[Rfam]
About this RNA:
tRNA: a 73-nucleotide sequence from Corynebacterium epidermidicanis. Taxonomically the source falls in Corynebacterium (Bacteria, Actinomycetota, Actinomycetes, Mycobacteriales). By type it is a transfer RNA. It scores 63 bits against the family's covariance model. Its family is annotated with triplet codon-amino acid adaptor activity in the Gene Ontology.
RNA sequence: GCCCUCGUAGCUCAGGGGAUAGAGCGCUGGUUUCCGGUACCAAAGGUCGGAGGUUCGAAUCCUCUCGAGGGCA
Numbered sequence: 001g002c003c004c005u006c007g008u009a010g011c012u013c014a015g016g017g018g019a020u021a022g023a024g025c026g027c028u029g030g031u032u033u034c035c036g037g038u039a040c041c042a043a044a045g046g047u048c049g050g051a052g053g054u055u056c057g058a059a060u061c062c063u064c065u066c067g068a069g070g071g072c073a
Stems, first nucleotide, its partner, number of pairs: 001072007010025004028042004049065005